[Rfam]
Rfam assigns this 71-nucleotide RNA from Schistosoma haematobium to the family "mir-3492 microRNA precursor family".
A search with the family's covariance model found it, with a score of 46 bits.
Taxonomically the source falls in Schistosoma (Eukaryota, Eumetazoa, Neodermata, Schistosomatoidea).

RNA sequence: AGCCUUCCGAAUCAGUGUUGAGAUUUUGUCAGACCAUCAGUACCGAUGAGACUUCCAAGAUAAGUGUAGCG
Numbered sequence: 001a002g003c004c005u006u007c008c009g010a011a012u013c014a015g016u017g018u019u020g021a022g023a024u025u026u027u028g029u030c031a032g033a034c035c036a037u038c039a040g041u042a043c044c045g046a047u048g049a050g051a052c053u054u055c056c057a058a059g060a061u062a063a064g065u066g067u068a069g070c071g
Base pairs, nucleotide, nucleotide: 002070003069006066008064011061012060013059016057017056020054021053022052024051025050026049027048028047029046030045